Notes
The family of this 77-nucleotide RNA from Vanessa tameamea is "mir-306 microRNA precursor family". Pairs were carried over by alignment from the consensus structure, which was predicted with RNAalifold. For this family Rfam cites "Systematic discovery and characterization of fly microRNAs using 12 Drosophila genomes" (Stark et al., Genome Res, 2007). A search with the family's covariance model found it, with a score of 58 bits. Lineage of the source: Eukaryota > Mandibulata > Pancrustacea > Neoptera > Vanessa.
RNA sequence: GCGCGGUCGUGUCAGGUACUAGGUGACUCUGAGUGGAGUGGGUCUCAGAGACGCCUCGUGCCUCAACACGGGCGCGC
Number, nucleotide and partner (000 for none) at each position: 001g077002c076003g075004c074005g073006g000007u000008c070009g069010u068011g067012u000013c000014a063015g062016g061017u060018a059019c058020u000021a000022g055023g054024u053025g052026a000027c050028u049029c048030u047031g046032a045033g044034u000035g000036g000037a000038g000039u000040g000041g000042g000043u000044c033045u032046c031047a030048g029049a028050g027051a000052c025053g024054c023055c022056u000057c000058g019059u018060g017061c016062c015063u014064c000065a000066a000067c011068a010069c009070g008071g000072g000073c005074g004075c003076g002077c001